Annotation:
Flavivirus capsid hairpin cHP: a 45-nucleotide RNA from Orthoflavivirus denguei. It is one of the family's seed sequences. Taxonomically the source falls in Dengue virus (Viruses, Flaviviridae, Orthoflavivirus, Euflavivirus). The family is grouped with related families in Rfam's "Flavivirus 5' UTR clan". cHP is a conserved RNA hairpin structure identified within the capsid coding region of several Flavivirus genomes. These positive strand RNA genomes are translated as a single polypeptide and subsequently cleaved into constituent proteins, the first of which is the capsid protein. The cHP hairpin is located within the capsid coding region between two AUG start codons. The cHP cis element has been shown to direct translation start from the thermodynamically unstable first start codon. It is annotated as a cis-regulatory element. The base pairs follow the family's consensus structure, which is taken from published work. On this family, see Clyde and Harris, J Virol 2006: "RNA secondary structure in the coding region of dengue virus type 2 directs translation start codon selection and is required for viral replication".
RNA sequence: AUGAACAACCAACGAAAAAAGACGGGAAGACCGUCUAUCAAUAUG
Number, nucleotide and partner (000 for none) at each position: 001a000002u000003g000004a000005a000006c000007a000008a000009c000010c000011a000012a000013c000014g000015a000016a000017a000018a038019a000020a036021g035022a034023c033024g032025g031026g000027a000028a000029g000030a000031c025032c024033g023034u022035c021036u020037a000038u018039c000040a000041a000042u000043a000044u000045g000